Notes: Group II catalytic intron D1-D4-4: a 124-nucleotide RNA from Candidatus Protofrankia datiscae. Rfam describes the family as follows. Group II introns are found in rRNA, tRNA and mRNA of organelles in fungi, plants and protists, and also in mRNA in bacteria. The base pairs follow the family's consensus structure. On this family, see Chu et al., EMBO J 2001: "Control of branch-site choice by a group II intron". NCBI's taxonomy places the organism under Bacteria, Bacillati, Actinomycetota, Actinomycetes, Protofrankia. A search with the family's covariance model found it, with a score of 58 bits.
RNA sequence: UUGCCGGUGGAAGCCCGAUCCGGGUAGCUGCGAGGAGACCCGGUAGCAGGCUGACGGCUCGGUCGGGUAACUGGCCGGGUCAGAGCCCAGCGUCGAAUGUAGAAGACGGAUACUCGGAAGGUGA
Number, nucleotide and partner (000 for none) at each position: 001u000002u000003g000004c000005c000006g000007g000008u000009g000010g000011a000012a000013g000014c000015c000016c000017g000018a000019u000020c043021c042022g041023g040024g039025u000026a000027g000028c000029u000030g000031c000032g000033a000034g000035g000036a000037g000038a000039c024040c023041c022042g021043g020044u000045a000046g000047c000048a000049g000050g091051c090052u089053g088054a000055c000056g081057g080058c079059u078060c077061g000062g000063u000064c073065g000066g071067g000068u000069a000070a000071c066072u000073g064074g000075c000076c000077g060078g059079g058080u057081c056082a000083g000084a000085g000086c000087c000088c053089a052090g051091c050092g000093u000094c000095g000096a000097a000098u108099g107100u000101a000102g000103a000104a000105g000106a000107c099108g098109g000110a000111u123112a000113c000114u000115c000116g000117g000118a000119a000120g000121g000122u000123g111124a000